6S / SsrS RNA: a 181-nucleotide sequence from Virgibacillus salinus. NCBI's taxonomy places the organism under Bacteria, Bacillota, Bacilli, Caryophanales, Virgibacillus. On this family, see Wassarman and Storz, Cell 2000: "6S RNA regulates E. coli RNA polymerase activity". E. coli 6S RNA was the first non coding RNA to be sequenced, but its function was unknown until recently. It consists of 184 nucleotides that fold into an extended hairpin structure with a large single-stranded internal bulge.
[Rfam]
RNA sequence: UAGAAGCUGCAAUGUGCGUAUUAAUUUUAGUUUAACCUCUAACAUAUGAAUAGGGAGUUUUACAUCGAAACUAUAAUGUCGUGCCUCGAAUGUGUGGAAGACAGGAAAGUUUCUGCAAACACCCACUUUGCGAAGUGGUGGUUUAAACUUUUUAUGAAAAUACGGCAAUUGUGGCUGAUAA
Numbered sequence: 001u002a003g004a005a006g007c008u009g010c011a012a013u014g015u016g017c018g019u020a021u022u023a024a025u026u027u028u029a030g031u032u033u034a035a036c037c038u039c040u041a042a043c044a045u046a047u048g049a050a051u052a053g054g055g056a057g058u059u060u061u062a063c064a065u066c067g068a069a070a071c072u073a074u075a076a077u078g079u080c081g082u083g084c085c086u087c088g089a090a091u092g093u094g095u096g097g098a099a100g101a102c103a104g105g106a107a108a109g110u111u112u113c114u115g116c117a118a119a120c121a122c123c124c125a126c127u128u129u130g131c132g133a134a135g136u137g138g139u140g141g142u143u144u145a146a147a148c149u150u151u152u153u154a155u156g157a158a159a160a161u162a163c164g165g166c167a168a169u170u171g172u173g174g175c176u177g178a179u180a181a
Stems, first nucleotide, its partner, number of pairs: 002179001005176007013167003017164003029150002032147001033145003036141002053124003057120004064114001067113006078102002084097002087094002